[Rfam]
RNA: S. pyogenes small RNA Spy490380c
Organism: Streptococcus equi
RNA sequence: AUAAUUAACUAUACUUAAUUAAUUAAAUAAUAGAUCCUAAGGAGAUAACUGAUGAAAAAGAAACUUAGCCUCGUCUUGAGUGCUUUUUUGGCUGUU
Numbered sequence: 001a002u003a004a005u006u007a008a009c010u011a012u013a014c015u016u017a018a019u020u021a022a023u024u025a026a027a028u029a030a031u032a033g034a035u036c037c038u039a040a041g042g043a044g045a046u047a048a049c050u051g052a053u054g055a056a057a058a059a060g061a062a063a064c065u066u067a068g069c070c071u072c073g074u075c076u077u078g079a080g081u082g083c084u085u086u087u088u089u090g091g092c093u094g095u096u
Stems, first nucleotide, its partner, number of pairs: 002021007035057001038054002059093002067084003070080004